[Rfam]
RNA sequence: UGAUUUGCUCGUAGGGCGCGAGCAAGGUAAACAAAAAAAGCCCACCGAGA
Numbered sequence: 001u002g003a004u005u006u007g008c009u010c011g012u013a014g015g016g017c018g019c020g021a022g023c024a025a026g027g028u029a030a031a032c033a034a035a036a037a038a039a040g041c042c043c044a045c046c047g048a049g050a
Stems, first nucleotide, its partner, number of pairs: 006024006014043004
RNA: 6A RNA